[Rfam]
The record is a 66-nucleotide RNA from Cricetulus griseus, which matches "mir-290 microRNA precursor family" in Rfam.
RNA sequence: GUAAUGCUCAAAAUCUGGCGGCACUUUGUUCCACAACAAAAAGUGCUGCCAUUAUUUGAGUACCAC
Numbered sequence: 001g002u003a004a005u006g007c008u009c010a011a012a013a014u015c016u017g018g019c020g021g022c023a024c025u026u027u028g029u030u031c032c033a034c035a036a037c038a039a040a041a042a043g044u045g046c047u048g049c050c051a052u053u054a055u056u057u058g059a060g061u062a063c064c065a066c
Base pairs, nucleotide, nucleotide: 005062006061007060008059009058010057011056012055016051017050018049019048020047021046022045023044024043025042026041027040
Taxonomically the source falls in Cricetulus (Eukaryota, Deuterostomia, Tetrapoda, Euarchontoglires). On this family, see Houbaviy et al., Dev Cell 2003: "Embryonic stem cell-specific MicroRNAs". It scores 54 bits against the family's covariance model.